[Rfam]
RNA sequence: AACGCUUCGCUUUCAUCGGUGACUUUAGUACGCAUAGCCACUAAGGCACGCGGUGAAUGCCAAGCGGG
Numbered sequence: 001a002a003c004g005c006u007u008c009g010c011u012u013u014c015a016u017c018g019g020u021g022a023c024u025u026u027a028g029u030a031c032g033c034a035u036a037g038c039c040a041c042u043a044a045g046g047c048a049c050g051c052g053g054u055g056a057a058u059g060c061c062a063a064g065c066g067g068g
Stems, first nucleotide, its partner, number of pairs: 003066004009060002012057005019051003023046007
mir-124 microRNA precursor family: a 68-nucleotide sequence from Caenorhabditis auriculariae. Gene Ontology terms of the family: RISC complex and miRNA-mediated post-transcriptional gene silencing. A reference for the family is Lagos-Quintana et al. (2002), "Identification of tissue-specific microRNAs from mouse", Curr Biol.